[Rfam]
RNA sequence: GCCCAGUUGAGCUGCGGUGGUCCGUGGUGCAGGCUUCAAACCUGUAGUCGAUUAGCGUCGAAGUGGUUCGAUUCCACCUACUGGGC
Numbered sequence: 001g002c003c004c005a006g007u008u009g010a011g012c013u014g015c016g017g018u019g020g021u022c023c024g025u026g027g028u029g030c031a032g033g034c035u036u037c038a039a040a041c042c043u044g045u046a047g048u049c050g051a052u053u054a055g056c057g058u059c060g061a062a063g064u065g066g067u068u069c070g071a072u073u074c075c076a077c078c079u080a081c082u083g084g085g086c
Base pairs, nucleotide, nucleotide: 001086002085003084004083005082006081007080009078012027013026014025015024016023017022028046029045030044031043032042033041048061049060050059051058052057063077064076065075066074
The family of this 86-nucleotide RNA from Anopheles darlingi is "Selenocysteine transfer RNA". The source organism's lineage runs through Eukaryota, Protostomia, Pancrustacea, Neoptera and argyritarsis series. Rfam 15.1 lists 4,211 matches to the family in 3,344 species.